About this RNA:
This 129-nucleotide sequence from Otolemur garnettii belongs to the Rfam family "Small nucleolar RNA SNORA68". U68 is a member of the H/ACA class of small nucleolar RNAs (snoRNAs) which act as guides in the the modification of uridines to pseudouridines.

RNA sequence: UUUGCACCUAAACUCCAAAAUUGCUGUUAAUAUAGCAGUGAUUUAAACAGAUGUGCAGACAAGUGGAUCUCAUCACCUUUGGAGGGCUGUGACUAUGCCCCUCAAAGUGAAUGUGGAGGUUCUAUAUCC
Numbered sequence: 001u002u003u004g005c006a007c008c009u010a011a012a013c014u015c016c017a018a019a020a021u022u023g024c025u026g027u028u029a030a031u032a033u034a035g036c037a038g039u040g041a042u043u044u045a046a047a048c049a050g051a052u053g054u055g056c057a058g059a060c061a062a063g064u065g066g067a068u069c070u071c072a073u074c075a076c077c078u079u080u081g082g083a084g085g086g087c088u089g090u091g092a093c094u095a096u097g098c099c100c101c102u103c104a105a106a107g108u109g110a111a112u113g114u115g116g117a118g119g120u121u122c123u124a125u126a127u128c129c
Base pairs, nucleotide, nucleotide: 002058003057004056005055006054007053009051019043020042021041022040023039024038025037026036027035028034065122066121067120069118070117071116077107078106079105080104081103082102084100085099086098087097
The family's consensus secondary structure was predicted with PFOLD. It is annotated as an H/ACA-box small nucleolar RNA.